RgsA sRNA: a 196-nucleotide RNA sequence from Pseudomonas syringae group genomosp. 3.
[Rfam]
RNA sequence: CAAGAAGCGCUUUGGUAUUCCAAAACUGUUUAAAAAACGACCAAAAGACACUGGACGGCGGCCCGUCCUGAGCAAUACUUAUAAGCGCUGACGCGUCAUAUCCCCCAAAUGACUCGCCAGUGGAGGUGCCAAUGGAUCAGCGCACCUUUGUUUUACUCCUAAUGGUCUUAACCCGGCUUCACCCCCCAGAAUCCGG
Numbered sequence: 001c002a003a004g005a006a007g008c009g010c011u012u013u014g015g016u017a018u019u020c021c022a023a024a025a026c027u028g029u030u031u032a033a034a035a036a037a038c039g040a041c042c043a044a045a046a047g048a049c050a051c052u053g054g055a056c057g058g059c060g061g062c063c064c065g066u067c068c069u070g071a072g073c074a075a076u077a078c079u080u081a082u083a084a085g086c087g088c089u090g091a092c093g094c095g096u097c098a099u100a101u102c103c104c105c106c107a108a109a110u111g112a113c114u115c116g117c118c119a120g121u122g123g124a125g126g127u128g129c130c131a132a133u134g135g136a137u138c139a140g141c142g143c144a145c146c147u148u149u150g151u152u153u154u155a156c157u158c159c160u161a162a163u164g165g166u167c168u169u170a171a172c173c174c175g176g177c178u179u180c181a182c183c184c185c186c187c188a189g190a191a192u193c194c195g196g
Base pairs, nucleotide, nucleotide: 039167040166041165042164043163087121088120089119090118092116093115095113097111098110099109122149123148124147125146126145127144128143129142130140173196174195175194176193178191179190180189

Overview:
Gene Ontology terms of the family: sRNA-mediated gene silencing, response to oxidative stress and response to hydrogen peroxide. Rfam describes the family as follows. This small RNA (sRNA) was computationally identified in the genome of the opportunistic pathogen Pseudomonas aeruginosa and its expression verified by northern blot analysis.